[Rfam]
RNA sequence: AAAAUAUGCUGGGGGGACUCCUUGGAGUUGAGAGGGCGCAGCGCCCGACCCUUUGAACCUGUUGGUUAAUACCAUCGUAGGGAAGCCGUGAUGAAUCAGC
Numbered sequence: 001a002a003a004a005u006a007u008g009c010u011g012g013g014g015g016g017a018c019u020c021c022u023u024g025g026a027g028u029u030g031a032g033a034g035g036g037c038g039c040a041g042c043g044c045c046c047g048a049c050c051c052u053u054u055g056a057a058c059c060u061g062u063u064g065g066u067u068a069a070u071a072c073c074a075u076c077g078u079a080g081g082g083a084a085g086c087c088g089u090g091a092u093g094a095a096u097c098a099g100c
Stems, first nucleotide, its partner, number of pairs: 008086003011052004016046001017028004035045004058081004063074003
Dot-bracket structure: .......(((((((.(((((....))))......((((...)))))..)))).....((((.(((......)))...))))..)))..............
RNA: TPP riboswitch aptamer (THI element)